Description: This 112-nucleotide sequence from Actinocrinis puniceicyclus belongs to the Rfam family "ZMP/ZTP riboswitch aptamer (pfl RNA motif)". NCBI's taxonomy places the organism under Bacteria, Bacillati, Actinomycetes, Actinospicaceae, Actinocrinis.
RNA sequence: CAGGCGAGCCGCGACUGGCGCUUCGGCGUGACAGACAGGCCGACUAGGUGGGCGUAACCACCGGGAAGCGGCCCGCCGUUCCGAGUGGGCACCGUGCGCCUGGGUGUUCGCC
Numbered sequence: 001c002a003g004g005c006g007a008g009c010c011g012c013g014a015c016u017g018g019c020g021c022u023u024c025g026g027c028g029u030g031a032c033a034g035a036c037a038g039g040c041c042g043a044c045u046a047g048g049u050g051g052g053c054g055u056a057a058c059c060a061c062c063g064g065g066a067a068g069c070g071g072c073c074c075g076c077c078g079u080u081c082c083g084a085g086u087g088g089g090c091a092c093c094g095u096g097c098g099c100c101u102g103g104g105u106g107u108u109c110g111c112c
Stems, first nucleotide, its partner, number of pairs: 003077004008072005015065002017100005048061004089107005